Background
A member of the RNA family "tRNA" from Mustela putorius, 73 nucleotides long. The match comes from Rfam's covariance-model search (46 bits). The family's RNA type in Rfam is transfer RNA.

RNA sequence: ACCUGGCUGGCUCAGUCGGUAGAGUGUGUGACUCUUGAUCUCAGGGUUGUGGGUUUGAGCCCCAUGUUGGGUG
Numbered sequence: 001a002c003c004u005g006g007c008u009g010g011c012u013c014a015g016u017c018g019g020u021a022g023a024g025u026g027u028g029u030g031a032c033u034c035u036u037g038a039u040c041u042c043a044g045g046g047u048u049g050u051g052g053g054u055u056u057g058a059g060c061c062c063c064a065u066g067u068u069g070g071g072u073g
Base pairs, nucleotide, nucleotide: 001072002071003070004069005068006067007066010025011024012023013022027043028042030040031039049065050064051063052062053061